[Rfam]
RNA sequence: AAUCACAUCGCAGAAUCGCAUCAUUGAAGCAACACACACGGCAAGGCUCGGUAUCCAUCCCGAGACCUUGGUCUCAAUCCCACCAUAAGUGGAAUGCUUUAGGGAAAGUCCCCGGACCCAACGGCAGAAAGUGCCGCCAGUGAUCCACCUGGUCAUUACCUCGAUCCAUCCACUCUUGGCGCAGGAUCAGCAGGCCAAGAUCUCCCAUGGAGUGAAUGCCUGGUGAAAGAUCCUAUUCAUAUGCCUUGAGCGGCGAGGCGUUUGUCAUAAUGUACAGUCAUGCGAUUGCUCUUCCUCCCUUGUCAAAGGGUGGGAGAGUAACUCAACGGGGCUCACUCGCGACAACGUGGC
Numbered sequence: 001a002a003u004c005a006c007a008u009c010g011c012a013g014a015a016u017c018g019c020a021u022c023a024u025u026g027a028a029g030c031a032a033c034a035c036a037c038a039c040g041g042c043a044a045g046g047c048u049c050g051g052u053a054u055c056c057a058u059c060c061c062g063a064g065a066c067c068u069u070g071g072u073c074u075c076a077a078u079c080c081c082a083c084c085a086u087a088a089g090u091g092g093a094a095u096g097c098u099u100u101a102g103g104g105a106a107a108g109u110c111c112c113c114g115g116a117c118c119c120a121a122c123g124g125c126a127g128a129a130a131g132u133g134c135c136g137c138c139a140g141u142g143a144u145c146c147a148c149c150u151g152g153u154c155a156u157u158a159c160c161u162c163g164a165u166c167c168a169u170c171c172a173c174u175c176u177u178g179g180c181g182c183a184g185g186a187u188c189a190g191c192a193g194g195c196c197a198a199g200a201u202c203u204c205c206c207a208u209g210g211a212g213u214g215a216a217u218g219c220c221u222g223g224u225g226a227a228a229g230a231u232c233c234u235a236u237u238c239a240u241a242u243g244c245c246u247u248g249a250g251c252g253g254c255g256a257g258g259c260g261u262u263u264g265u266c267a268u269a270a271u272g273u274a275c276a277g278u279c280a281u282g283c284g285a286u287u288g289c290u291c292u293u294c295c296u297c298c299c300u301u302g303u304c305a306a307a308g309g310g311u312g313g314g315a316g317a318g319u320a321a322c323u324c325a326a327c328g329g330g331g332c333u334c335a336c337u338c339g340c341g342a343c344a345a346c347g348u349g350g351c
Base pairs, nucleotide, nucleotide: 003350004349005348006347008342009341010340011339014287015286016285017284018283019282024102025101026100027099028098029097030096107333108332110331111330112329113328123135124134125133126132148163151160152159153158170258171257173255175253179251180250182248192246193245194244195243222232223231224230289318290317291316292315293314294313
RNA: RNase MRP